Shown here is a 272-nucleotide RNA sequence from Nannospalax galili, a member of the family "Mason-Pfizer monkey virus packaging signal". A reference for the family is Harrison et al. (1995), "Secondary structure model of the Mason-Pfizer monkey virus 5' leader sequence: identification of a structural motif common to a variety of retroviruses", J Virol. The organism belongs to Nannospalax, within Eukaryota.
RNA sequence: UGGCGCCCAACAUGGGGCCUGGAUACUGGGGACAAUGUGAGGGACAUGAUGGAGAAAAAAGGGGUAUGCACCCGCUCAAAUAAUUCAGAGACGCCACGGGAGCCAGCAGUGACUGAGCCGAAGGUAAGUUGGUUGUUCAAUCAUGGGGCAAGAAUUAAAUCAGCAUCAGAUUUAUGUGAUACAGUUAAGAGAAGCUCUACAGGCAAGAGGAGUAAAGGUUAAAACUGAGGAUUUGUUUCAUUUCUUUGAUUUUGUAAAGGACAUUUGUCCCU
Number, nucleotide and partner (000 for none) at each position: 001u000002g000003g000004c000005g000006c031007c030008c029009a000010a000011c000012a000013u025014g024015g000016g000017g000018c000019c000020u000021g000022g000023a000024u014025a013026c000027u000028g000029g008030g007031g006032a000033c000034a000035a000036u048037g047038u046039g000040a000041g000042g000043g000044a000045c000046a038047u037048g036049a000050u000051g000052g000053a000054g000055a000056a000057a000058a000059a000060a000061g000062g000063g000064g000065u000066a000067u000068g000069c000070a000071c000072c000073c000074g000075c000076u000077c000078a000079a000080a000081u000082a125083a000084u123085u121086c120087a000088g000089a000090g000091a000092c115093g114094c000095c111096a110097c109098g000099g107100g000101a000102g000103c000104c000105a000106g000107c099108a000109g097110u096111g095112a000113c000114u093115g092116a000117g000118c000119c000120g086121a085122a000123g084124g000125u082126a000127a000128g000129u000130u000131g000132g149133u148134u000135g000136u147137u146138c145139a144140a000141u000142c000143a000144u139145g138146g137147g136148g133149c132150a000151a000152g000153a000154a000155u000156u199157a198158a000159a000160u194161c000162a000163g000164c000165a000166u000167c000168a000169g000170a000171u000172u000173u000174a000175u000176g000177u000178g000179a000180u000181a000182c000183a000184g000185u000186u000187a000188a000189g000190a000191g000192a000193a000194g160195c000196u000197c000198u157199a156200c000201a000202g000203g000204c000205a000206a000207g247208a246209g245210g244211a243212g242213u000214a000215a000216a234217g233218g232219u231220u230221a000222a000223a000224a000225c000226u000227g000228a000229g000230g220231a219232u218233u217234u216235g000236u000237u000238u000239c000240a000241u000242u212243u211244c210245u209246u208247u207248g000249a000250u000251u000252u000253u000254g000255u000256a000257a272258a000259g270260g269261a268262c267263a000264u000265u000266u000267g262268u261269c260270c259271c000272u257